[Rfam]
Shown here is a 348-nucleotide RNA sequence from Falsihalocynthiibacter arcticus, a member of the family "Alphaproteobacteria transfer-messenger RNA". The family's consensus secondary structure is taken from published work. The organism belongs to Falsihalocynthiibacter, within Bacteria.

RNA sequence: CCACUUGUAACUCCGCCGCACGCGCCCUACAUUAAAACUGUCCUUCGGGACUAUGGAUAUAAACGCGCUUGUAAUAAGCGGAUCGGACCCGGGGGCGGUACCCGGCGACUCCACCAAAAUCCUUCUUUGGGGAUCAUGGGGUCGAAAUAGGAUCGACGAACGUCUAAAGAGGUUUGCUUUAUCUCGGUGAGUUACCACCGUUAUCGGUACAUAAAAAGCUAGUUGCAAAUGACAACGACGCUCCGAUGGCUCUAGCUGCGUAAGCAGUUCGAAAUAUCGAAAACUUAGUCCCCUAGCUUUGCAGCUUUGGGCGGGGUUCGCAGGUACCUGGCAACAGAAACCUGCACU
Numbered sequence: 001c002c003a004c005u006u007g008u009a010a011c012u013c014c015g016c017c018g019c020a021c022g023c024g025c026c027c028u029a030c031a032u033u034a035a036a037a038c039u040g041u042c043c044u045u046c047g048g049g050a051c052u053a054u055g056g057a058u059a060u061a062a063a064c065g066c067g068c069u070u071g072u073a074a075u076a077a078g079c080g081g082a083u084c085g086g087a088c089c090c091g092g093g094g095g096c097g098g099u100a101c102c103c104g105g106c107g108a109c110u111c112c113a114c115c116a117a118a119a120u121c122c123u124u125c126u127u128u129g130g131g132g133a134u135c136a137u138g139g140g141g142u143c144g145a146a147a148u149a150g151g152a153u154c155g156a157c158g159a160a161c162g163u164c165u166a167a168a169g170a171g172g173u174u175u176g177c178u179u180u181a182u183c184u185c186g187g188u189g190a191g192u193u194a195c196c197a198c199c200g201u202u203a204u205c206g207g208u209a210c211a212u213a214a215a216a217a218g219c220u221a222g223u224u225g226c227a228a229a230u231g232a233c234a235a236c237g238a239c240g241c242u243c244c245g246a247u248g249g250c251u252c253u254a255g256c257u258g259c260g261u262a263a264g265c266a267g268u269u270c271g272a273a274a275u276a277u278c279g280a281a282a283a284c285u286u287a288g289u290c291c292c293c294u295a296g297c298u299u300u301g302c303a304g305c306u307u308u309g310g311g312c313g314g315g316g317u318u319c320g321c322a323g324g325u326a327c328c329u330g331g332c333a334a335c336a337g338a339a340a341c342c343u344g345c346a347c348u
Stems, first nucleotide, its partner, number of pairs: 040051004055184005065177002067173004079162002083159003089105005106144007185200004191210002194208003314329004320345006